[Rfam]
RNA sequence: ACUGGAGGAUUAAUCAAUCUGAGCCUGAAGACUGAGACUCAGAGGAUAGUAGCCUCCUAAAAGAAAAGGGAUGGAGAGAGCGGUCCUGCUUCCAGAAGAGCAAUGGGCUGACUGUGCCAUCCAACACUU
Numbered sequence: 001a002c003u004g005g006a007g008g009a010u011u012a013a014u015c016a017a018u019c020u021g022a023g024c025c026u027g028a029a030g031a032c033u034g035a036g037a038c039u040c041a042g043a044g045g046a047u048a049g050u051a052g053c054c055u056c057c058u059a060a061a062a063g064a065a066a067a068g069g070g071a072u073g074g075a076g077a078g079a080g081c082g083g084u085c086c087u088g089c090u091u092c093c094a095g096a097a098g099a100g101c102a103a104u105g106g107g108c109u110g111a112c113u114g115u116g117c118c119a120u121c122c123a124a125c126a127c128u129u
Stems, first nucleotide, its partner, number of pairs: 003059001004057005018043002021040003025036002068122003079113002081110006091102001093100001
Small Cajal body specific RNA 4: a 129-nucleotide sequence from Atlantisia rogersi. Lineage of the source: Eukaryota > Deuterostomia > Teleostomi > Theropoda > Atlantisia. About the family: scaRNAs are a specific class of small nuclear RNAs which localise to the Cajal bodies and guide the modification of RNA polymerase II transcribed spliceosomal RNAs U1, U2, U4, U5 and U12. The family's RNA type in Rfam is small Cajal body RNA. A search with the family's covariance model found it, with a score of 84 bits. Its family is annotated with Cajal body, RNA processing and nucleolus in the Gene Ontology. The family is grouped with related families in Rfam's "SCARNA4 clan". The family's consensus secondary structure was predicted with RNAfold.